[Rfam]
RNA: S10-Clostridia ribosomal protein leader
Organism: Bacillus licheniformis
RNA sequence: UGACUGCGAUGAAGUGAGAGGUUGCUGACACACCCGGCCGCUUUGCCAUGGCAAGGUGAUUCAGGUUUUUCUCACGGAGAAUUGUCUAAUGUAAGUAGGCGA
Numbered sequence: 001u002g003a004c005u006g007c008g009a010u011g012a013a014g015u016g017a018g019a020g021g022u023u024g025c026u027g028a029c030a031c032a033c034c035c036g037g038c039c040g041c042u043u044u045g046c047c048a049u050g051g052c053a054a055g056g057u058g059a060u061u062c063a064g065g066u067u068u069u070u071c072u073c074a075c076g077g078a079g080a081a082u083u084g085u086c087u088a089a090u091g092u093a094a095g096u097a098g099g100c101g102a
Stems, first nucleotide, its partner, number of pairs: 014075003018071004025064004083101004090094001